[Rfam]
RNA: Group I catalytic intron
RNA sequence: CUAUAGACUUAAUAGAAUUGAGCCUUGGUAUGGAAACUUACUAAGUGAUAGCUUCCAAAUAUAGGGGAACCCUAGAAUGUUUUGAAUGGGAAAUCAUGAGCCAAAUCCAUAUUAUAGGAACAAUAGUUUUCUUUUCUAGAAAAGGGAUAGGUACAGAGACUCAACAUAAGCUAUUCUAACGACUUAAUAUUAUUUGAAUUUGAACCAAUAUUCUAUCUACAAAGUGUAGUGUGUUAUUGAAUUUUUUUAAAGUGUUAUGUAUCAUCGUUAAAACUUGUUUUAAUGAUUAGAACUUGAGUUUUUCUAGGCUUGCCAAGAUUACUGAAUUCUUAAUUAAAGUAAUUCAAUUAAGAAAUAACUUCUCUAUAAAUAUAAUUUAUUCCAUUUUUGAAUUAUUGGAUGAGGAUAAAGAUAAAGUCCAAUUCUACAUGUCAAUGCCAA
Numbered sequence: 001c002u003a004u005a006g007a008c009u010u011a012a013u014a015g016a017a018u019u020g021a022g023c024c025u026u027g028g029u030a031u032g033g034a035a036a037c038u039u040a041c042u043a044a045g046u047g048a049u050a051g052c053u054u055c056c057a058a059a060u061a062u063a064g065g066g067g068a069a070c071c072c073u074a075g076a077a078u079g080u081u082u083u084g085a086a087u088g089g090g091a092a093a094u095c096a097u098g099a100g101c102c103a104a105a106u107c108c109a110u111a112u113u114a115u116a117g118g119a120a121c122a123a124u125a126g127u128u129u130u131c132u133u134u135u136c137u138a139g140a141a142a143a144g145g146g147a148u149a150g151g152u153a154c155a156g157a158g159a160c161u162c163a164a165c166a167u168a169a170g171c172u173a174u175u176c177u178a179a180c181g182a183c184u185u186a187a188u189a190u191u192a193u194u195u196g197a198a199u200u201u202g203a204a205c206c207a208a209u210a211u212u213c214u215a216u217c218u219a220c221a222a223a224g225u226g227u228a229g230u231g232u233g234u235u236a237u238u239g240a241a242u243u244u245u246u247u248u249a250a251a252g253u254g255u256u257a258u259g260u261a262u263c264a265u266c267g268u269u270a271a272a273a274c275u276u277g278u279u280u281u282a283a284u285g286a287u288u289a290g291a292a293c294u295u296g297a298g299u300u301u302u303u304c305u306a307g308g309c310u311u312g313c314c315a316a317g318a319u320u321a322c323u324g325a326a327u328u329c330u331u332a333a334u335u336a337a338a339g340u341a342a343u344u345c346a347a348u349u350a351a352g353a354a355a356u357a358a359c360u361u362c363u364c365u366a367u368a369a370a371u372a373u374a375a376u377u378u379a380u381u382c383c384a385u386u387u388u389u390g391a392a393u394u395a396u397u398g399g400a401u402g403a404g405g406a407u408a409a410a411g412a413u414a415a416a417g418u419c420c421a422a423u424u425c426u427a428c429a430u431g432u433c434a435a436u437g438c439c440a441a
Stems, first nucleotide, its partner, number of pairs: 005025002008022006030038001050172005062098002065095002070090003100152002106146003113140001115138006156420001158419004174406004179401001428437003